[Rfam]
RNA sequence: UUCUUAUCCAGAGAGGUGGAGGGACUGGCCCUUUGAAGCCUCAGCAACAGGUCGAAAGACACUGUGCUAAUUCCUGCGGGUGUUGUACCCGAUCGAUAAGCU
Numbered sequence: 001u002u003c004u005u006a007u008c009c010a011g012a013g014a015g016g017u018g019g020a021g022g023g024a025c026u027g028g029c030c031c032u033u034u035g036a037a038g039c040c041u042c043a044g045c046a047a048c049a050g051g052u053c054g055a056a057a058g059a060c061a062c063u064g065u066g067c068u069a070a071u072u073c074c075u076g077c078g079g080g081u082g083u084u085g086u087a088c089c090c091g092a093u094c095g096a097u098a099a100g101c102u
Base pairs, nucleotide, nucleotide: 003100004099005098006097007096008095013042014041015040016039017038021031022030023029025076027074028073043068044067045066046065048064049063051060052059053058077091078090079089080088